[Rfam]
RNA sequence: CAAGAUCGAUUACGGACGGGGGAACGGGCUGUCACGGCCCGUUUUCAUUCCCGGCGACCGUAGGCCUAGUUCCCGUCGGCCACGCCCCCAUCCUUGCUUGAAGCAAUUCCGGCCCAUGCUGCGGGGGACAUGCAUCGGCGGCAAUCUCGCACUUGCACAAACUUAUAUUGCGCUGCAGUAUAGAUCAGGGCGGGAAUGCGAGCCGGGUUCGGGAAUAGCCGUGCCUUUCGCAUUACAAUGCGAAGGGAUCGGC
Numbered sequence: 001c002a003a004g005a006u007c008g009a010u011u012a013c014g015g016a017c018g019g020g021g022g023a024a025c026g027g028g029c030u031g032u033c034a035c036g037g038c039c040c041g042u043u044u045u046c047a048u049u050c051c052c053g054g055c056g057a058c059c060g061u062a063g064g065c066c067u068a069g070u071u072c073c074c075g076u077c078g079g080c081c082a083c084g085c086c087c088c089c090a091u092c093c094u095u096g097c098u099u100g101a102a103g104c105a106a107u108u109c110c111g112g113c114c115c116a117u118g119c120u121g122c123g124g125g126g127g128a129c130a131u132g133c134a135u136c137g138g139c140g141g142c143a144a145u146c147u148c149g150c151a152c153u154u155g156c157a158c159a160a161a162c163u164u165a166u167a168u169u170g171c172g173c174u175g176c177a178g179u180a181u182a183g184a185u186c187a188g189g190g191c192g193g194g195a196a197u198g199c200g201a202g203c204c205g206g207g208u209u210c211g212g213g214a215a216u217a218g219c220c221g222u223g224c225c226u227u228u229c230g231c232a233u234u235a236c237a238a239u240g241c242g243a244a245g246g247g248a249u250c251g252g253c
Base pairs, nucleotide, nucleotide: 001060006054007053008052012048015046016045023043024042025041026040027039028038029037030036031035063087095105096104097103098102108128109127110126112122113121131217132216135213136212140208142206146202147201148200149199150198151197152194153193154192155191156190158188161185163183164182165181166180167179168178169177170176171175218253219252220251221250224246225245228243229242230241231240232239233238
RNA: Mesorhizobail RNA 15
Organism: Mesorhizobium australicum